Shown here is a 116-nucleotide sequence from Pseudolycoriella hygida, a member of the family "Group II catalytic intron D1-D4-2". On this family, see Bonen and Vogel, Trends Genet 2001: "The ins and outs of group II introns". It scores 83 bits against the family's covariance model. NCBI's taxonomy places the organism under Eukaryota, Metazoa, Panarthropoda, Neoptera, Pseudolycoriella.
RNA sequence: GGUAGUAGGUAUACCGAAGUCGGUUACCAGAAGCAGGCUCCAAACCACCUCAGGCGGCUACUAUUAAGAGUAGUGGUCGUGAGCGCAUGAGGAAAAUCAGCUUAAGCUGGUGAGGU
Numbered sequence: 001g002g003u004a005g006u007a008g009g010u011a012u013a014c015c016g017a018a019g020u021c022g023g024u025u026a027c028c029a030g031a032a033g034c035a036g037g038c039u040c041c042a043a044a045c046c047a048c049c050u051c052a053g054g055c056g057g058c059u060a061c062u063a064u065u066a067a068g069a070g071u072a073g074u075g076g077u078c079g080u081g082a083g084c085g086c087a088u089g090a091g092g093a094a095a096a097u098c099a100g101c102u103u104a105a106g107c108u109g110g111u112g113a114g115g116u
Stems, first nucleotide, its partner, number of pairs: 001015004016041001018039004023034003046115001048092005053086001054080002057077003061073004097110004